[Rfam]
RNA sequence: ACGAUGUUCCGCUGUUACCAAUUGGAAAUAAGAGCAUUGG
Numbered sequence: 001a002c003g004a005u006g007u008u009c010c011g012c013u014g015u016u017a018c019c020a021a022u023u024g025g026a027a028a029u030a031a032g033a034g035c036a037u038u039g040g
Stems, first nucleotide, its partner, number of pairs: 003038007013030002015027002018024001
RNA: Ribosomal protein L19 leader